[Rfam]
RNA sequence: UCCCGAUGAGGAAGCAAACCUAAAAGAUAAGAAGUUCCGCAUUGCACUUUAAACGCGGCGGCAAC
Numbered sequence: 001u002c003c004c005g006a007u008g009a010g011g012a013a014g015c016a017a018a019c020c021u022a023a024a025a026g027a028u029a030a031g032a033a034g035u036u037c038c039g040c041a042u043u044g045c046a047c048u049u050u051a052a053a054c055g056c057g058g059c060g061g062c063a064a065c
Base pairs, nucleotide, nucleotide: 014059015058031050032049033048034047035046
RNA: Small nucleolar RNA U49